[Rfam]
RNA sequence: AAUCGUUGUUGGCAAACCUGAUGUGAGUCAGGGACGCAAAGCCAGGAGCUUUCUGCUUUAUUUCCUGCAAGCAGAAGGUAGUUCGGCUGCAAUA
Numbered sequence: 001a002a003u004c005g006u007u008g009u010u011g012g013c014a015a016a017c018c019u020g021a022u023g024u025g026a027g028u029c030a031g032g033g034a035c036g037c038a039a040a041g042c043c044a045g046g047a048g049c050u051u052u053c054u055g056c057u058u059u060a061u062u063u064c065c066u067g068c069a070a071g072c073a074g075a076a077g078g079u080a081g082u083u084c085g086g087c088u089g090c091a092a093u094a
Base pairs, nucleotide, nucleotide: 012037013036017032018031019030020029021028022027040088041087042086043085045084046083047082048079049078050077055072056071057070058069
Shown here is a 94-nucleotide RNA from Faecalibacterium prausnitzii, a member of the family "c-di-GMP-I riboswitch aptamer". Rfam describes the family as follows. GEMM was predicted in a large-scale screen for bacterial structured RNA regulatory elements. It scores 54 bits against the family's covariance model. Gene Ontology term of the family: cyclic-di-GMP binding. The family's consensus secondary structure is taken from published work.